[Rfam]
Overview: mir-2774 microRNA precursor family: a 72-nucleotide RNA sequence from Bombyx mori. For this family Rfam cites "MicroRNAs of Bombyx mori identified by Solexa sequencing" (Liu et al., BMC Genomics, 2010). The base pairs follow the family's consensus structure, which was predicted with RNAalifold. The source organism's lineage runs through Eukaryota, Panarthropoda, Glossata, Neolepidoptera and Bombyx. Rfam links the family to the GO terms miRNA-mediated post-transcriptional gene silencing and RISC complex.
RNA sequence: ACAACAUUCGGACCGUCGCGUCGGUGUAUCGAGGAAUAUCACCCGCUCUGUGGAGGAUCUUCCCUUUGUCGG
Numbered sequence: 001a002c003a004a005c006a007u008u009c010g011g012a013c014c015g016u017c018g019c020g021u022c023g024g025u026g027u028a029u030c031g032a033g034g035a036a037u038a039u040c041a042c043c044c045g046c047u048c049u050g051u052g053g054a055g056g057a058u059c060u061u062c063c064c065u066u067u068g069u070c071g072g
Stems, first nucleotide, its partner, number of pairs: 004069003010063003015058003025054001027052003031048003